Rfam assigns this 101-nucleotide sequence from Acholeplasma brassicae to the family "Purine riboswitch aptamer". Riboswitches are metabolite binding domains within certain messenger RNAs that serve as precision sensors for their corresponding targets. Allosteric rearrangement of mRNA structure is mediated by ligand binding, and this results in modulation of gene expression. A class of riboswitches that selectively recognises guanine and becomes saturated at concentrations as low as 5 nM. In Bacillus subtilis, this mRNA motif is located on at least five separate transcriptional units that together encode 17 genes that are mostly involved in purine transport and purine nucleotide biosynthesis. It has also been shown that some members of this family are specific for adenine instead.
RNA sequence: AGCCGUGUAUUCAAUAUGUAUCGUAUAAUCAGCCUAAUAUGGGGGCUAAGUUUCUACCGCGAGCCUAUAACGUCGCGACUACGAUAUGAAAACCAUUUUUU
Number, nucleotide and partner (000 for none) at each position: 001a000002g000003c000004c000005g000006u000007g000008u000009a000010u000011u000012c000013a000014a000015u000016a000017u000018g087019u086020a085021u084022c083023g082024u081025a080026u000027a000028a000029u049030c000031a047032g046033c045034c044035u043036a000037a000038u000039a000040u000041g000042g000043g035044g034045g033046c032047u031048a000049a029050g000051u000052u000053u000054c000055u000056a000057c000058c077059g076060c075061g074062a073063g071064c000065c000066u000067a000068u000069a000070a000071c063072g000073u062074c061075g060076c059077g058078a000079c000080u025081a024082c023083g022084a021085u020086a019087u018088g000089a000090a000091a000092a000093c000094c000095a000096u000097u000098u000099u000100u000101u000